[Rfam]
The family of this 171-nucleotide RNA from Simplicispira hankyongi is "Manganese Mn2+ riboswitch aptamer (yybP-ykoY)". A search with the family's covariance model found it, with a score of 51 bits. The literature on the family includes a 2015 paper in Mol Cell by Dambach et al., "The ubiquitous yybP-ykoY riboswitch is a manganese-responsive regulatory element".
RNA sequence: CCCUUGGGGAGUAGCCGGCUUUCGACUUCGAAAGCGCCUGCGUCAACAUACUCGGCCCGCUCUGCGCGCUGUGGCGCAGGCAUCCAGUGUGCUGGUUGGCGAGACCAUGGGCGCGUUCACACGACAGGAGCCGGGCCGUGGGAAUGCGCCUUUGCGUUCGCCCGGCCAGAU
Numbered sequence: 001c002c003c004u005u006g007g008g009g010a011g012u013a014g015c016c017g018g019c020u021u022u023c024g025a026c027u028u029c030g031a032a033a034g035c036g037c038c039u040g041c042g043u044c045a046a047c048a049u050a051c052u053c054g055g056c057c058c059g060c061u062c063u064g065c066g067c068g069c070u071g072u073g074g075c076g077c078a079g080g081c082a083u084c085c086a087g088u089g090u091g092c093u094g095g096u097u098g099g100c101g102a103g104a105c106c107a108u109g110g111g112c113g114c115g116u117u118c119a120c121a122c123g124a125c126a127g128g129a130g131c132c133g134g135g136c137c138g139u140g141g142g143a144a145u146g147c148g149c150c151u152u153u154g155c156g157u158u159c160g161c162c163c164g165g166c167c168a169g170a171u
Stems, first nucleotide, its partner, number of pairs: 019034003036081010053071004088170001